The record is a 110-nucleotide sequence, which matches "DUF3800-I RNA" in Rfam. Actinobacteria, Firmicutes, Fusobacteria, Proteobacteria (1 example), Tenericutes (2 examples).
[Rfam]
RNA sequence: UAAUACUGCAGGUAGAAAUACGCUGUAUACUCGUGUAAUCGAAUUAACGUUUAAGCGGCAUAAUCUGUCGCCGACCACGAGGCCGCCUUUUUUAGGCGGUUUUUUUUAGG
Number, nucleotide and partner (000 for none) at each position: 001u000002a000003a000004u000005a000006c000007u027008g026009c025010a024011g023012g021013u020014a019015g000016a000017a000018a000019u014020a013021c012022g000023c011024u010025g009026u008027a007028u000029a000030c081031u080032c079033g078034u077035g076036u000037a000038a000039u074040c073041g072042a051043a050044u049045u000046a000047a000048c000049g044050u043051u042052u000053a000054a000055g071056c070057g069058g068059c067060a066061u000062a000063a000064u000065c000066u060067g059068u058069c057070g056071c055072c041073g040074a039075c000076c035077a034078c033079g032080a031081g030082g100083c099084c098085g097086c096087c095088u094089u000090u000091u000092u000093u000094a088095g087096g086097c085098g084099g083100u082101u000102u000103u000104u000105u000106u000107u000108a000109g000110g000
Annotation:
Pairs were carried over by alignment from the consensus structure, which is taken from published work.